[Rfam]
The family of this 104-nucleotide sequence from Paenibacillus sp. FSL R7-0331 is "Purine riboswitch aptamer". The base pairs follow the family's consensus structure, which is taken from published work. A search with the family's covariance model found it, with a score of 57 bits.
RNA sequence: UGGACUAACAGAAUAAGCUCUUGUAUAAGCUCAUUAAUCCGGUUUGAGCGUUUCGACCAGGCGACCGUAAAUUGCCCCAGGCUACAAGAGGUGCAGGAAAGAAU
Numbered sequence: 001u002g003g004a005c006u007a008a009c010a011g012a013a014u015a016a017g018c019u020c021u022u023g024u025a026u027a028a029g030c031u032c033a034u035u036a037a038u039c040c041g042g043u044u045u046g047a048g049c050g051u052u053u054c055g056a057c058c059a060g061g062c063g064a065c066c067g068u069a070a071a072u073u074g075c076c077c078c079a080g081g082c083u084a085c086a087a088g089a090g091g092u093g094c095a096g097g098a099a100a101g102a103a104u
Base pairs, nucleotide, nucleotide: 018090019089020088021087022086023085024084025083029049030048031047032046033045058080060076061075062074063073064072